RNA sequence: CCCAGGGCGUUGCCCUGGGCUAGGUUGUUCCGCCCCUUCGGGGCA
Numbered sequence: 001c002c003c004a005g006g007g008c009g010u011u012g013c014c015c016u017g018g019g020c021u022a023g024g025u026u027g028u029u030c031c032g033c034c035c036c037u038u039c040g041g042g043g044c045a
Base pairs, nucleotide, nucleotide: 001019002018003017004016005015006014007013008012032044033043034042035041036040
RNA: Acido-Lenti-1 RNA
Organism: Planctomyces sp. SCGC AG-212-M04